[Rfam]
RNA sequence: AGUGGUGAUAGAGGUGCGAACGUCAAAAGUACCCAUUCAGAGAUGGACAGAAUCUGUGAGGAAUGGGGAAAGGGGCGGUCGCCGAAGUGUACGGGGAACUGUAAAUCCGUAUGCUGGUCCUGCAUUUAAGAAGUGCAGGGCUGUCAGAGUGAAUCUCUGGAGGGCUAUCUCACAU
Numbered sequence: 001a002g003u004g005g006u007g008a009u010a011g012a013g014g015u016g017c018g019a020a021c022g023u024c025a026a027a028a029g030u031a032c033c034c035a036u037u038c039a040g041a042g043a044u045g046g047a048c049a050g051a052a053u054c055u056g057u058g059a060g061g062a063a064u065g066g067g068g069a070a071a072g073g074g075g076c077g078g079u080c081g082c083c084g085a086a087g088u089g090u091a092c093g094g095g096g097a098a099c100u101g102u103a104a105a106u107c108c109g110u111a112u113g114c115u116g117g118u119c120c121u122g123c124a125u126u127u128a129a130g131a132a133g134u135g136c137a138g139g140g141c142u143g144u145c146a147g148a149g150u151g152a153a154u155c156u157c158u159g160g161a162g163g164g165c166u167a168u169c170u171c172a173c174a175u
Stems, first nucleotide, its partner, number of pairs: 007169005016082004021077004032067007086115010116142011144160006

This 175-nucleotide sequence from Planomicrobium sp. CPCC 101110 belongs to the Rfam family "Lysine riboswitch aptamer".
It scores 125 bits against the family's covariance model.
From the family's description: Riboswitches are metabolite binding domains within certain messenger RNAs that serve as precision sensors for their corresponding targets.
Lineage of the source: Bacteria > Bacillota > Bacilli > Caryophanales > Planomicrobium.